[Rfam]
RNA sequence: UGGAGGACUGAGAAGGUUUAGCAGCUUGUUCUGUGCUGUUAUAACUGGUUAUAACCUCCUAAAUAGAAAAUAAUGCAGAUGCAACAAACCGGCUGCAUGUGACACAUCAGAGCUGGCGUUGUGUUUGUGUACAGAUC
Numbered sequence: 001u002g003g004a005g006g007a008c009u010g011a012g013a014a015g016g017u018u019u020a021g022c023a024g025c026u027u028g029u030u031c032u033g034u035g036c037u038g039u040u041a042u043a044a045c046u047g048g049u050u051a052u053a054a055c056c057u058c059c060u061a062a063a064u065a066g067a068a069a070a071u072a073a074u075g076c077a078g079a080u081g082c083a084a085c086a087a088a089c090c091g092g093c094u095g096c097a098u099g100u101g102a103c104a105c106a107u108c109a110g111a112g113c114u115g116g117c118g119u120u121g122u123g124u125u126u127g128u129g130u131a132c133a134g135a136u137c
Stems, first nucleotide, its partner, number of pairs: 002059005015046004019041007080129003086124001088122002096116001099113002103110001